[Rfam]
Nucleotides: 086
Base pairs, nucleotide, nucleotide: 001025002024004023005022006021007020008019009018010017011016038045039044047086048085049084056079057078058077059076061074062073063072
Number, partner (000 for none) and nucleotide at each position: 001025u002024a003000a004023g005022c006021c007020u008019g009018c010017u011016u012000g013000u014000g015000a016011a017010a018009g019008u020007a021006g022005g023004u024002u025001g026000a027000a028000u029000u030000g031000a032000c033000a034000g035000a036000a037000g038045u039044c040000a041000g042000c043000a044039g045038a046000g047086g048085u049084c050000a051000u052000a053000g054000u055000a056079c057078g058077u059076a060000u061074g062073u063072c064000g065000u066000u067000g068000c069000a070000a071000c072063g073062a074061c075000u076059u077058a078057c079056g080000g081000a082000u083000g084049g085048a086047c
This 86-nucleotide sequence from Paenibacillus sedimenti belongs to the Rfam family "Group II catalytic intron D1-D4-1". The literature on the family includes a 2001 paper in Trends Genet by Bonen and Vogel, "The ins and outs of group II introns". Gene Ontology term of the family: Group II intron splicing.